RNA sequence: GAAACCCUAAUGUAUUCGAUAUAGUUCCUGAUAUUUUUGAACCGAACAAUUUUUUAUACCUAGGGAGCUUGGAGUUCCGGCGCGGCGCACAUGCCUUCACACGAGGAAGUGCAAACCGUUAGACAGAGCACCCACCUGCUUUAAUUGAGAGCGGGUUCAAAGGAAGGGAAUCCUAAACGGUACGAUUGGGGUUUCU
Numbered sequence: 001g002a003a004a005c006c007c008u009a010a011u012g013u014a015u016u017c018g019a020u021a022u023a024g025u026u027c028c029u030g031a032u033a034u035u036u037u038u039g040a041a042c043c044g045a046a047c048a049a050u051u052u053u054u055u056a057u058a059c060c061u062a063g064g065g066a067g068c069u070u071g072g073a074g075u076u077c078c079g080g081c082g083c084g085g086c087g088c089a090c091a092u093g094c095c096u097u098c099a100c101a102c103g104a105g106g107a108a109g110u111g112c113a114a115a116c117c118g119u120u121a122g123a124c125a126g127a128g129c130a131c132c133c134a135c136c137u138g139c140u141u142u143a144a145u146u147g148a149g150a151g152c153g154g155g156u157u158c159a160a161a162g163g164a165a166g167g168g169a170a171u172c173c174u175a176a177a178c179g180g181u182a183c184g185a186u187u188g189g190g191g192u193u194u195c196u
Stems, first nucleotide, its partner, number of pairs: 002194010012183004017179002034164004038159006063133003067129004072124001077122001079120004089110002094106004
This 196-nucleotide sequence from Listeria monocytogenes belongs to the Rfam family "6S / SsrS RNA". NCBI's taxonomy places the organism under Bacteria, Bacilli, Caryophanales, Listeriaceae, Listeria. The family's consensus secondary structure is taken from published work. From the family's description: E. coli 6S RNA was the first non coding RNA to be sequenced, but its function was unknown until recently. It consists of 184 nucleotides that fold into an extended hairpin structure with a large single-stranded internal bulge. The 6S RNA specifically associates with RNA polymerase holoenzyme containing the sigma70 specificity factor. This interaction represses expression from a sigma70-dependent promoter during stationary phase. 6S RNA homologs have recently been identified in most bacterial genomes.